[Rfam]
RNA sequence: CUAGAGACGGCGUACAUAUCUUGCCUUUGGCAUUUCCCUGGACGUUAGCUUUGACCCGAGAGGGUAGCGACUAAGUACUAGGACCGGCAGGCGUUGAGUUCCCUGAUCAGGAAACGCGGCCGGU
Numbered sequence: 001c002u003a004g005a006g007a008c009g010g011c012g013u014a015c016a017u018a019u020c021u022u023g024c025c026u027u028u029g030g031c032a033u034u035u036c037c038c039u040g041g042a043c044g045u046u047a048g049c050u051u052u053g054a055c056c057c058g059a060g061a062g063g064g065u066a067g068c069g070a071c072u073a074a075g076u077a078c079u080a081g082g083a084c085c086g087g088c089a090g091g092c093g094u095u096g097a098g099u100u101c102c103c104u105g106a107u108c109a110g111g112a113a114a115c116g117c118g119g120c121c122g123g124u
Stems, first nucleotide, its partner, number of pairs: 001081004006076001009071001010045004015040002022032004048068002056064002084123004091117005102111003
Shown here is a 124-nucleotide sequence, a member of the family "Flavobacterium-1 RNA".
Pairs were carried over by alignment from the consensus structure, which is taken from published work.